[Rfam]
RNA sequence: GCUUAGCCCCGAUUGAAGUGGCAUCCUUUUUAAUUGUCAGUUCGAGUGAAUUUGUGAAGAAUGAGUAAAUUUGUAUCGAGAACAAAUUAAAAAGAUAUAACGGAAAGCGGGAAUUAGC
Number, nucleotide and partner (000 for none) at each position: 001g000002c000003u000004u000005a000006g000007c000008c000009c110010c109011g108012a000013u106014u105015g000016a000017a000018g101019u100020g000021g000022c000023a096024u095025c094026c000027u000028u000029u091030u090031u000032a000033a000034u085035u084036g000037u000038c000039a000040g000041u080042u079043c078044g077045a076046g000047u000048g000049a000050a000051u000052u000053u000054g000055u000056g000057a000058a000059g000060a000061a000062u000063g000064a000065g000066u000067a000068a000069a000070u000071u000072u000073g000074u000075a000076u045077c044078g043079a042080g041081a000082a000083c000084a035085a034086a000087u000088u000089a000090a030091a029092a000093a000094g025095a024096u023097a000098u000099a000100a019101c018102g000103g000104a000105a014106a013107g000108c011109g010110g009111g000112a000113a000114u000115u000116a000117g000118c000
Record summary:
Rfam assigns this 118-nucleotide sequence to the family "Flavo-1 RNA". By type it is a small RNA. Rfam 15.1 lists 7,497 matches to the family in 411 species. Rfam's curators put it in the seed alignment.